[Rfam]
The record is a 107-nucleotide RNA sequence from Thiogranum longum, which matches "t44 RNA" in Rfam. Rfam classes the family as a small RNA.
RNA sequence: UGCCCGGUAACUUGAAUCCACACAUACGUCGGCACAUACAGUUGGGUGCCUUCGGCAUGGCGAGAGCCAUCCGCGGGUUACUGUUAUGGGACGUAUGGAGGCCCAAC
Dot-bracket structure: ......................((((((((....((((.(((.....((((.......................)))).)))..)))).))))))))..........
Numbered sequence: 001u002g003c004c005c006g007g008u009a010a011c012u013u014g015a016a017u018c019c020a021c022a023c024a025u026a027c028g029u030c031g032g033c034a035c036a037u038a039c040a041g042u043u044g045g046g047u048g049c050c051u052u053c054g055g056c057a058u059g060g061c062g063a064g065a066g067c068c069a070u071c072c073g074c075g076g077g078u079u080a081c082u083g084u085u086a087u088g089g090g091a092c093g094u095a096u097g098g099a100g101g102c103c104c105a106a107c
Stems, first nucleotide, its partner, number of pairs: 023097008035088004040082003048078004
The organism belongs to Thiogranum, within Bacteria.